U4 spliceosomal RNA: a 141-nucleotide RNA from Aedes aegypti. The family's consensus secondary structure is taken from published work. Rfam 15.1 lists 32,178 matches to the family in 2,547 species. Rfam's curators put it in the seed alignment. Lineage of the source: Eukaryota > Bilateria > Arthropoda > Endopterygota > Stegomyia.
[Rfam]
RNA sequence: AGCUUUGCGCAGUGGCGAUAUCGUAACCAAUGAGGUUUAACCGAGGUGCGAUUAUUGCUAGUUGAAAACUAAUACCAAUACCCCGCCUUGGGGACGUGAAAUACCGUCCGCUACGGCAAUUUUUGACAACCCCGAAAGGGG
Numbered sequence: 001a002g003c004u005u006u007g008c009g010c011a012g013u014g015g016c017g018a019u020a021u022c023g024u025a026a027c028c029a030a031u032g033a034g035g036u037u038u039a040a041c042c043g044a045g046g047u048g049c050g051a052u053u054a055u056u057g058c059u060a061g062u063u064g065a066a067a068a069c070u071a072a073u074a075c076c077a078a079u080a081c082c083c084c085g086c087c088u089u090g091g092g093g094a095c096g097u098g099a100a101a102u103a104c105c106g107u108c109c110g111c112u113a114c115g116g117c118a119a120u121u122u123u124u125g126a127c128a129a130c131c132c133c134g135a136a137a138g139g140g141g
Stems, first nucleotide, its partner, number of pairs: 020052005026047003034042003085117003088113001090111001092109004096104002130141004